Small nucleolar RNA SNORA42/SNORA80 family: a 136-nucleotide RNA sequence from Orycteropus afer. From the family's description: The members of this family belong to the H/ACA class of snoRNAs that guide the sites of modification of uridines to pseudouridines. Human ACA42 (SNORA42) was cloned from HeLa cells by immunoprecipitation with anti-GAR1 antibody. Its is predicted to guide the pseudouridylation of residues U109 and U572 of 18S rRNA. ACA42 shares the same host gene with ACA26, ACA46, ACA50. This family also includes mammalian snoRNA ACA67 (SNORA80) which was identified by computational screening and its expression in mouse experimentally verified by Northern blot and primer extension analysis. ACA67 is proposed to guide the pseudouridylation of the same 18S rRNA residues as ACA42.

RNA sequence: GCAUGGGUUUGGAUUUUUGGCAGGGCCAUCCCUGUGGGCCUCUCACAGUGUCCCAUGCUAGAGCAAACUGUAGCCCCGAACCCUUGCCUGGCCUCCUUGUCCAUAGGCUACAGGUACUAAAGUGGCUUGCACAAUG
Number, nucleotide and partner (000 for none) at each position: 001g058002c057003a056004u055005g053006g052007g051008u050009u000010u000011g000012g000013a000014u000015u048016u047017u000018u045019g044020g043021c000022a041023g040024g039025g000026c036027c000028a000029u000030c000031c000032c000033u000034g000035u000036g026037g000038g000039c024040c023041u022042c000043u020044c019045a018046c000047a016048g015049u000050g008051u007052c006053c005054c000055a004056u003057g002058c001059u000060a000061g000062a000063g000064c000065a000066a000067a000068c000069u000070g000071u129072a128073g127074c000075c125076c124077c000078g000079a000080a000081c000082c000083c000084u000085u000086g000087c114088c113089u110090g109091g108092c107093c106094u105095c000096c000097u000098u000099g000100u000101c000102c000103a000104u000105a094106g093107g092108c091109u090110a089111c000112a000113g088114g087115u000116a000117c000118u000119a000120a000121a000122g000123u000124g076125g075126c000127u073128u072129g071130c000131a000132c000133a000134a000135u000136g000